[Rfam]
RNA sequence: UCGAUGAUUUAAAAUAGAUUUCUCGGUCCAGUAUGUGAAAUUACACCCAAGACAGCCACAAGCGCCUGAAGUGUUGCAUACGGAAUGCGAGAGUGGUUCGGUAUAAGGCCGACCCCUAAUAUUUACCCAUAUCGAGG
Numbered sequence: 001u002c003g004a005u006g007a008u009u010u011a012a013a014a015u016a017g018a019u020u021u022c023u024c025g026g027u028c029c030a031g032u033a034u035g036u037g038a039a040a041u042u043a044c045a046c047c048c049a050a051g052a053c054a055g056c057c058a059c060a061a062g063c064g065c066c067u068g069a070a071g072u073g074u075u076g077c078a079u080a081c082g083g084a085a086u087g088c089g090a091g092a093g094u095g096g097u098u099c100g101g102u103a104u105a106a107g108g109c110c111g112a113c114c115c116c117u118a119a120u121a122u123u124u125a126c127c128c129a130u131a132u133c134g135a136g137g
Base pairs, nucleotide, nucleotide: 001135002134003133004132005131006130010125011124012123013122021092022091023090024089025088028083029082031081032080033079034078035077036076044073045072046071055063056062095115096114098112099111100110101109
Overview: The record is a 137-nucleotide RNA sequence from Polynucleobacter sp. Adler-ghost, which matches "icd-II ncRNA motif" in Rfam. For this family Rfam cites "Comprehensive discovery of novel structured noncoding RNAs in 26 bacterial genomes" (Brewer et al., RNA Biol, 2021). The source organism's lineage runs through Bacteria, Pseudomonadati, Pseudomonadota, Burkholderiaceae and Polynucleobacter. Rfam links the family to the GO term regulation of gene expression. Rfam describes the family as follows. icd-II ncRNA motif was located upstream of icd gene, which codes for NADP+-dependent isocitrate dehydrogenase (IDH) enzyme. icd-II has been proposed as a strong candidate riboswitch. It is one of the family's seed sequences.